c-di-GMP-I riboswitch aptamer: an 82-nucleotide RNA sequence from Sedimentibacter sp. zth1. The match comes from Rfam's covariance-model search (66 bits).

RNA sequence: GUGAUAAAAUGGCAAACCCAGAGAAAUCUGGUGACGCAAAGCUAAGGGUCUAAGAUGAAAAUUAUGAUAGCCAGUUGUAGUA
Numbered sequence: 001g002u003g004a005u006a007a008a009a010u011g012g013c014a015a016a017c018c019c020a021g022a023g024a025a026a027u028c029u030g031g032u033g034a035c036g037c038a039a040a041g042c043u044a045a046g047g048g049u050c051u052a053a054g055a056u057g058a059a060a061a062u063u064a065u066g067a068u069a070g071c072c073a074g075u076u077g078u079a080g081u082a
Base pairs, nucleotide, nucleotide: 012037013036018031019030020029021028022027040076041075042074043073046072047071048068049067050066055062056061